[Rfam]
RNA sequence: CCUGACUCUACAGAAAACAUUUCUGCACAAACCAGACUAUUGAAUCCAGUGUGGGGCGAUGCUUCUGCUACAUUCUGA
Numbered sequence: 001c002c003u004g005a006c007u008c009u010a011c012a013g014a015a016a017a018c019a020u021u022u023c024u025g026c027a028c029a030a031a032c033c034a035g036a037c038u039a040u041u042g043a044a045u046c047c048a049g050u051g052u053g054g055g056g057c058g059a060u061g062c063u064u065c066u067g068c069u070a071c072a073u074u075c076u077g078a
Stems, first nucleotide, its partner, number of pairs: 002077001004075002007072001009070002011067005018061004023056002026053004032049001